[Rfam]
RNA sequence: CGGUUUCAAGCGUUCCGCGUAACGGUCUCCUGCGUUUUGUUCUCCUGGCGCGUCUUCAGCCGCAGGUGUCUCCUCCCUCGCCUGUCGGUGAUGCGCCCGCCUUGCCUCGCUUGCCGUUCCUGCGCAGCGAGGCUUUUU
Numbered sequence: 001c002g003g004u005u006u007c008a009a010g011c012g013u014u015c016c017g018c019g020u021a022a023c024g025g026u027c028u029c030c031u032g033c034g035u036u037u038u039g040u041u042c043u044c045c046u047g048g049c050g051c052g053u054c055u056u057c058a059g060c061c062g063c064a065g066g067u068g069u070c071u072c073c074u075c076c077c078u079c080g081c082c083u084g085u086c087g088g089u090g091a092u093g094c095g096c097c098c099g100c101c102u103u104g105c106c107u108c109g110c111u112u113g114c115c116g117u118u119c120c121u122g123c124g125c126a127g128c129g130a131g132g133c134u135u136u137u138u
Stems, first nucleotide, its partner, number of pairs: 047097008062085007104133008113123002

About this RNA:
This 138-nucleotide sequence from Neorhizobium sp. S3-V5DH belongs to the Rfam family "Rhizobiales sRNA Atu_C7". For this family Rfam cites "Deep sequencing uncovers numerous small RNAs on all four replicons of the plant pathogen Agrobacterium tumefaciens" (Wilms et al., RNA Biol, 2012). Lineage of the source: Bacteria > Pseudomonadota > Alphaproteobacteria > Hyphomicrobiales > Neorhizobium. It scores 59 bits against the family's covariance model. Rfam classes the family as a small RNA.